[Rfam]
RNA sequence: GAGUUUCGCAAGGGCCAUCCUCCUCCCAAAGGCCCGAGCGGAUUGUCCGCAGCAUCCUCCUCCCAAAGCUGCAGGGCACUAUUCGACGCCCGCCGGUCCUCCCCCGGCGGGCGUCUUCG
Numbered sequence: 001g002a003g004u005u006u007c008g009c010a011a012g013g014g015c016c017a018u019c020c021u022c023c024u025c026c027c028a029a030a031g032g033c034c035c036g037a038g039c040g041g042a043u044u045g046u047c048c049g050c051a052g053c054a055u056c057c058u059c060c061u062c063c064c065a066a067a068g069c070u071g072c073a074g075g076g077c078a079c080u081a082u083u084c085g086a087c088g089c090c091c092g093c094c095g096g097u098c099c100u101c102c103c104c105c106g107g108c109g110g111g112c113g114u115c116u117u118c119g
Stems, first nucleotide, its partner, number of pairs: 007040003012035005045077004049072005086114011
RNA: Alphaproteobacterial ar14
Organism: Aurantimonas sp. Leaf443